[Rfam]
RNA sequence: UGCCGAUAAUAGCAAACUCGUCGAAAGGCGGGGACGCAAAGCCUUGGGUCUAAUGGAUGCAAGUCCUAUGAUUGCCAGGUUGCCGAA
Number, nucleotide and partner (000 for none) at each position: 001u000002g000003c000004c000005g000006a000007u000008a000009a000010u000011a000012g037013c036014a000015a000016a000017c032018u031019c030020g029021u028022c027023g000024a000025a000026a000027g022028g021029c020030g019031g018032g017033g000034a000035c000036g013037c012038a000039a000040a081041g080042c079043c078044u000045u077046g076047g075048g072049u071050c070051u000052a000053a000054u000055g066056g065057a064058u063059g000060c000061a000062a000063g058064u057065c056066c055067u000068a000069u000070g050071a049072u048073u000074g000075c047076c046077a045078g043079g042080u041081u040082g000083c000084c000085g000086a000087a000